[Rfam]
RNA sequence: GCAAUUUUUUGGCAAACUUGUCGAAAGGCAAGGACGCAAAGCCAUAGGGGCUAAGGUUCGGGGCAUUUCCCGGAUGAUGCCAGCCGGUUGCUUCC
Dot-bracket structure: ...........((...((((((....))))))...))..((((...(((((....((((((((....))))))))...)))..))))))......
Overview:
The family of this 95-nucleotide sequence from Faecalibacterium prausnitzii is "c-di-GMP-I riboswitch aptamer". Rfam links the family to the GO term cyclic-di-GMP binding. The source organism's lineage runs through Bacteria, Bacillati, Eubacteriales, Faecalibacterium and Faecalibacterium prausnitzii. Rfam describes the family as follows. GEMM was predicted in a large-scale screen for bacterial structured RNA regulatory elements.